Nucleotides: 115
Stems, first nucleotide, its partner, number of pairs: 011078001013075002015031006058068003098107001100105001
Number, partner (000 for none) and nucleotide at each position: 001000a002000g003000a004000a005000a006000a007000g008000u009000a010000a011078c012000c013075g014074c015031c016030g017029c018028c019027c020026c021000g022000c023000g024000c025000a026020g027019g028018g029017g030016c031015g032000a033000c034000g035000c036000u037000a038000a039000u040000a041000g042000a043000c044000c045000g046000a047000c048000a049000c050000g051000a052000u053000c054000a055000c056000a057000g058068g059067u060066g061000c062000u063000u064000c065000a066060c067059g068058c069000c070000c071000a072000a073000c074014g075013c076000a077000a078011g079000c080000a081000a082000a083000c084000c085000a086000c087000a088000a089000a090000u091000c092000a093000a094000u095000c096000c097000u098107u099000c100105c101000c102000a103000c104000c105100g106000c107098g108000c109000u110000c111000a112000a113000c114000a115000a